[Rfam]
RNA sequence: UGGCUGUAGCAAUAGAUUUUUAUCUGAGAAGUUAACUGGCCGGUUGCUGCGAUCAAUCAGCAUAUCUGCUUACCGAACUACUAACAUAU
Dot-bracket structure: ..........................((.((((....(((.(((.((((........))))..))).))).....)))).)).......

The family of this 89-nucleotide RNA from Capsicum annuum is "Small nucleolar RNA snoR109". For this family Rfam cites "Experimental RNomics: identification of 140 candidates for small non-messenger RNAs in the plant Arabidopsis thaliana" (Marker et al., Curr Biol, 2002). Rfam 15.1 lists 680 matches to the family in 220 species.